[Rfam]
RNA sequence: AAGCGACCAAUUCAAAGCGCCGGAAUGGGGUAGCAAACCGGCCGCGUUGGACCCGCGCAAGUCGGCGUCCCCGCCCCCCUGAGUCGCCCGGGCCUGCCCAUGCGU
Numbered sequence: 001a002a003g004c005g006a007c008c009a010a011u012u013c014a015a016a017g018c019g020c021c022g023g024a025a026u027g028g029g030g031u032a033g034c035a036a037a038c039c040g041g042c043c044g045c046g047u048u049g050g051a052c053c054c055g056c057g058c059a060a061g062u063c064g065g066c067g068u069c070c071c072c073g074c075c076c077c078c079c080u081g082a083g084u085c086g087c088c089c090g091g092g093c094c095u096g097c098c099c100a101u102g103c104g105u
Base pairs, nucleotide, nucleotide: 003087004086005085006084007083020041021040022039023038026033044074045073046072053065054064055063090099091098092097

Rfam assigns this 105-nucleotide RNA sequence from Mycobacterium parmense to the family "Mycobacterium sRNA ncrMT1302". A reference for the family is Pelly et al. (2012), "A screen for non-coding RNA in Mycobacterium tuberculosis reveals a cAMP-responsive RNA that is expressed during infection", Gene. The family's consensus secondary structure was predicted with WAR. Rfam classes the family as a small RNA. It scores 92 bits against the family's covariance model.